[Rfam]
RNA sequence: AAUGUUUUUGCUUUGGUAUUAUAGCUGUAUGGUGUAUUUGAAAUCCAUAAAGCUAAAUUACCAAAGCAUAGCUGUU
Numbered sequence: 001a002a003u004g005u006u007u008u009u010g011c012u013u014u015g016g017u018a019u020u021a022u023a024g025c026u027g028u029a030u031g032g033u034g035u036a037u038u039u040g041a042a043a044u045c046c047a048u049a050a051a052g053c054u055a056a057a058u059u060a061c062c063a064a065a066g067c068a069u070a071g072c073u074g075u076u
Stems, first nucleotide, its partner, number of pairs: 001076004007070001009068010020057001022055005028049005
RNA: mir-9/mir-79 microRNA precursor family